[Rfam]
RNA: Clostridiales-1 RNA
RNA sequence: UGCUUAUAGGGUCGAAAAGUCCUUGCACGCCUGUGCUUGCACAGAGGUGUGCAAGACCUUGAGACCCGCCCGACAUGAGCAUAAAAGCGGAGCGAAGCUUCGCGAUAUGCGAAUGGCGGGGAGAGGAUUGCGGGAGCUGCUUUGCAGCGGAGCAAUCCGGUAAGCA
Dot-bracket structure: (((((((..((((..((.(((.(((((((((((((....)))))..))))))))))).))..))))..((((.(((..((((....(((((((...)))))))...))))..))).))))....(((((((....((((.....))))...))))))).)))))))